Shown here is an 80-nucleotide RNA from Orthohepacivirus hominis, a member of the family "SL669 non-coding RNA". The base pairs follow the family's consensus structure, which was predicted with RNAfold. On this family, see Pirakitikulr et al., Mol Cell 2016: "The Coding Region of the HCV Genome Contains a Network of Regulatory RNA Structures". By type it is a cis-regulatory element.
RNA sequence: AUGACCCCCGGCGAAGGUCUCGCAACCUGGGUAAAGUCAUCGAUACCCUAACGUGCGGAUUCGCCGAUCUCAUGGGGUAC
Numbered sequence: 001a002u003g004a005c006c007c008c009c010g011g012c013g014a015a016g017g018u019c020u021c022g023c024a025a026c027c028u029g030g031g032u033a034a035a036g037u038c039a040u041c042g043a044u045a046c047c048c049u050a051a052c053g054u055g056c057g058g059a060u061u062c063g064c065c066g067a068u069c070u071c072a073u074g075g076g077g078u079a080c
Stems, first nucleotide, its partner, number of pairs: 003080001004078005009066005015061002018058002021055003029048005036041001